[Rfam]
RNA sequence: UGUACAACUGAAUACGGCUCCUCAAGGGCGGUCAGCGGCUCACUCCCUAGAAGAAAGGGGGUGAAGCCUAAUGGUGUCAUAUGAAGCACUUAACCUAGCAAUCAACUUCGGCGUACUACCAUUAGCAUUGUAGGUGUUAUUCUUGCCAUCGCGACACUUAUAAAAAAGAAAUAGACCUCCCUUGAGCCUGACAAGCACAGGAGGUCCAUCUCUGUUCAACCAUAUGAGCCGCUCCCUGCAUUUGGGAACGUCUGUUGUACAUCGACUGCAUGCGCUGCAGCGCAUGCA
Numbered sequence: 001u002g003u004a005c006a007a008c009u010g011a012a013u014a015c016g017g018c019u020c021c022u023c024a025a026g027g028g029c030g031g032u033c034a035g036c037g038g039c040u041c042a043c044u045c046c047c048u049a050g051a052a053g054a055a056a057g058g059g060g061g062u063g064a065a066g067c068c069u070a071a072u073g074g075u076g077u078c079a080u081a082u083g084a085a086g087c088a089c090u091u092a093a094c095c096u097a098g099c100a101a102u103c104a105a106c107u108u109c110g111g112c113g114u115a116c117u118a119c120c121a122u123u124a125g126c127a128u129u130g131u132a133g134g135u136g137u138u139a140u141u142c143u144u145g146c147c148a149u150c151g152c153g154a155c156a157c158u159u160a161u162a163a164a165a166a167a168g169a170a171a172u173a174g175a176c177c178u179c180c181c182u183u184g185a186g187c188c189u190g191a192c193a194a195g196c197a198c199a200g201g202a203g204g205u206c207c208a209u210c211u212c213u214g215u216u217c218a219a220c221c222a223u224a225u226g227a228g229c230c231g232c233u234c235c236c237u238g239c240a241u242u243u244g245g246g247a248a249c250g251u252c253u254g255u256u257g258u259a260c261a262u263c264g265a266c267u268g269c270a271u272g273c274g275c276u277g278c279a280g281c282g283c284a285u286g287c288a
Stems, first nucleotide, its partner, number of pairs: 001261005007255002011251001015231006021186008031176003040064003044060005073155001075153003079149001110147004199213003233247004267288009

The record is a 288-nucleotide RNA sequence from Aneurinibacillus migulanus, which matches "BsrG" in Rfam.
The family's consensus secondary structure was predicted with WAR.
Rfam describes the family as follows. bsrE, bsrG and bsrH pair through intermolecular interactions with antisense sRNAs.
The family's RNA type in Rfam is small RNA.